RNA sequence: UGUCUCCUCCACCCUCCUCCUUUGGUGUGGAUUAACGCGGGAUCACUCGUGUGGUUCCGCGUUUUUUUU
Numbered sequence: 001u002g003u004c005u006c007c008u009c010c011a012c013c014c015u016c017c018u019c020c021u022u023u024g025g026u027g028u029g030g031a032u033u034a035a036c037g038c039g040g041g042a043u044c045a046c047u048c049g050u051g052u053g054g055u056u057c058c059g060c061g062u063u064u065u066u067u068u069u
Base pairs, nucleotide, nucleotide: 008031009030010029011028012027013025014024035062036061037060038059039058040057041056042055043054044053
RNA: Betaproteobacteria toxic small RNA